Rfam assigns this 95-nucleotide sequence to the family "RT-17 RNA". It is one of the family's seed sequences. The base pairs follow the family's consensus structure, which is taken from published work.

RNA sequence: AGCCACACCCAAUGGUGAAAAAUCAACUUUUGAUGUAGUGUUGGUAAUCGUGCAUUUGGCACGGCUGAAGACAGAGAAAAAGUAAAAGCAGACAA
Numbered sequence: 001a002g003c004c005a006c007a008c009c010c011a012a013u014g015g016u017g018a019a020a021a022a023u024c025a026a027c028u029u030u031u032g033a034u035g036u037a038g039u040g041u042u043g044g045u046a047a048u049c050g051u052g053c054a055u056u057u058g059g060c061a062c063g064g065c066u067g068a069a070g071a072c073a074g075a076g077a078a079a080a081a082g083u084a085a086a087a088g089c090a091g092a093c094a095a
Stems, first nucleotide, its partner, number of pairs: 006017004039073003047066001050062004